[Rfam]
RNA sequence: GUCGAGCAUAGGGCGGCCACCCGAAAACCGGACACCUUCACCGGCUGGCUCGGCGUUCUUCGUGAAGG
Number, nucleotide and partner (000 for none) at each position: 001g054002u053003c052004g051005a050006g049007c048008a000009u000010a000011g022012g021013g020014c000015g000016g000017c000018c000019a000020c013021c012022c011023g000024a000025a000026a000027a000028c044029c043030g042031g041032a000033c000034a000035c068036c067037u066038u065039c064040a063041c031042c030043g029044g028045c000046u000047g000048g007049c006050u005051c004052g003053g002054c001055g000056u000057u000058c000059u000060u000061c000062g000063u040064g039065a038066a037067g036068g035

int-alpA RNA: a 68-nucleotide RNA from Burkholderia ambifaria.
The sequence is in the family's curated seed alignment.
Rfam describes the family as follows. Acidobacteria (1 example), Planctomycetes (1 example), Proteobacteria.
Lineage of the source: Bacteria > Pseudomonadati > Pseudomonadota > Burkholderiales > Burkholderia ambifaria.